[Rfam]
Shown here is an 83-nucleotide sequence from Apium graveolens, a member of the family "Small nucleolar RNA R12". By type it is a C/D-box small nucleolar RNA. The source organism's lineage runs through Eukaryota, Embryophyta, Mesangiospermae, Apioideae and Apium. Rfam links the family to the GO terms RNA processing and nucleolus. The match comes from Rfam's covariance-model search (57 bits). A reference for the family is Chen et al. (2003), "The high diversity of snoRNAs in plants: identification and comparative study of 120 snoRNA genes from Oryza sativa", Nucleic Acids Res. From the family's description: snoR12 is a C/D box small nucleolar RNA, which acts as a methylation guide for 25S ribosomal RNA in plants. snoR12 has been alternatively named snoZ44 in Arabidopsis and snoZ131 in rice.
RNA sequence: GAGAGAGUGGCAAAAAAAUCAUUCAGAUUCCCUGUGAAUUCUAUGAAUUAUUCAUGUUGGUAAACCAGCUACUUCCGACUCUC
Numbered sequence: 001g002a003g004a005g006a007g008u009g010g011c012a013a014a015a016a017a018a019u020c021a022u023u024c025a026g027a028u029u030c031c032c033u034g035u036g037a038a039u040u041c042u043a044u045g046a047a048u049u050a051u052u053c054a055u056g057u058u059g060g061u062a063a064a065c066c067a068g069c070u071a072c073u074u075c076c077g078a079c080u081c082u083c
Stems, first nucleotide, its partner, number of pairs: 001083005